[Rfam]
RNA sequence: UAAUUUGUGAGGAGUAGAGAUCCUCCGCAGUGGAAACAAGGAAACACUCAGCCUGAUCUCACGA
Numbered sequence: 001u002a003a004u005u006u007g008u009g010a011g012g013a014g015u016a017g018a019g020a021u022c023c024u025c026c027g028c029a030g031u032g033g034a035a036a037c038a039a040g041g042a043a044a045c046a047c048u049c050a051g052c053c054u055g056a057u058c059u060c061a062c063g064a
Base pairs, nucleotide, nucleotide: 018059019058020057021056022055027052028051030047031046032045
Cyano-1 RNA: a 64-nucleotide sequence from Prochlorococcus marinus. It is one of the family's seed sequences. The family's consensus secondary structure is taken from published work. The family has 265 seed sequences and 283 matches in Rfam 15.1. NCBI's taxonomy places the organism under Bacteria, Bacillati, Cyanophyceae, Prochlorococcaceae, Prochlorococcus marinus.